[Rfam]
RNA sequence: CUGGGCGAGGCCGUGUGCCCCUGGAUCCGGGUGAGGCCACGCGCCCCUGGGUCCGGGUGAGGCCAUGCGCCCCU
Numbered sequence: 001c002u003g004g005g006c007g008a009g010g011c012c013g014u015g016u017g018c019c020c021c022u023g024g025a026u027c028c029g030g031g032u033g034a035g036g037c038c039a040c041g042c043g044c045c046c047c048u049g050g051g052u053c054c055g056g057g058u059g060a061g062g063c064c065a066u067g068c069g070c071c072c073c074u
Stems, first nucleotide, its partner, number of pairs: 003072005009064004016059005023054009033045001036042002
A member of the RNA family "mir-9279 microRNA precursor family" from Cnephaeus nilssonii, 74 nucleotides long. The organism belongs to Cnephaeus, within Eukaryota. A search with the family's covariance model found it, with a score of 90 bits. The family's consensus secondary structure was predicted with RNAalifold.